[Rfam]
RNA sequence: AAUCUAAACCGAGUAUUUAUAUAUUUGGCAUGAUGAAAAAACCAAUGACGUGUAAAGAACCCAACAUCAAGGGGUUACCGUCAUUGGUCAUAUCUGGAAACGGAUAUGGAUAGCUAAGGCUAUC
Numbered sequence: 001a002a003u004c005u006a007a008a009c010c011g012a013g014u015a016u017u018u019a020u021a022u023a024u025u026u027g028g029c030a031u032g033a034u035g036a037a038a039a040a041a042c043c044a045a046u047g048a049c050g051u052g053u054a055a056a057g058a059a060c061c062c063a064a065c066a067u068c069a070a071g072g073g074g075u076u077a078c079c080g081u082c083a084u085u086g087g088u089c090a091u092a093u094c095u096g097g098a099a100a101c102g103g104a105u106a107u108g109g110a111u112a113g114c115u116a117a118g119g120c121u122a123u124c
Stems, first nucleotide, its partner, number of pairs: 002034003009028007042087009052078001059075004089108008109124006
Dot-bracket structure: .(((....(((((((......)))))))...))).......(((((((((.(......((((.........))))..)))))))))).((((((((....))))))))((((((....))))))
Shown here is a 124-nucleotide RNA, a member of the family "LOOT RNA". It is annotated as a small RNA.